[Rfam]
The family of this 103-nucleotide RNA from Streptococcus pneumoniae is "Streptococcus sRNA SpF41".

Nucleotides: 103
Base pairs, nucleotide, nucleotide: 003074004073005072006071007070008069009068012066013065031044032043033042034041035040048064049063050062051061052060076095077094078093079092080091081090082089083088
Number, partner (000 for none) and nucleotide at each position: 001000a002000a003074a004073g005072c006071a007070c008069a009068a010000g011000g012066g013065a014000u015000a016000g017000u018000a019000u020000a021000g022000a023000a024000g025000g026000a027000g028000u029000a030000c031044a032043c033042c034041u035040u036000g037000a038000u039000a040035g041034a042033g043032g044031u045000a046000g047000c048064c049063a050062c051061g052060g053000u054000g055000c056000g057000a058000a059000u060052c061051c062050g063049u064048g065013u066012c067000a068009u069008u070007g071006u072005g073004c074003u075000a076095g077094c078093a079092u080091c081090u082089a083088g084000g085000a086000a087000a088083c089082u090081a091080g092079g093078u094077g095076c096000u097000u098000u099000u100000u101000a102000u103000u